[Rfam]
RNA sequence: GGAAGGGGGCAGGGGUUUCUUUCGGCCUCCAGCCGCUUUGGAUAGUUGUAGGCCGGCGGAAACUACUUGCCUCUCGUC
Numbered sequence: 001g002g003a004a005g006g007g008g009g010c011a012g013g014g015g016u017u018u019c020u021u022u023c024g025g026c027c028u029c030c031a032g033c034c035g036c037u038u039u040g041g042a043u044a045g046u047u048g049u050a051g052g053c054c055g056g057c058g059g060a061a062a063c064u065a066c067u068u069g070c071c072u073c074u075c076g077u078c
Base pairs, nucleotide, nucleotide: 005074006073007072008071010069011068012067013066014064015063016062017061018060019059020058022056023055024054025053026052027051028050030048031047032046
mir-2796 microRNA precursor family: a 78-nucleotide RNA sequence from Rhodnius prolixus. NCBI's taxonomy places the organism under Eukaryota, Metazoa, Panarthropoda, Hemiptera, Rhodnius. The family's consensus secondary structure was predicted with RNAalifold.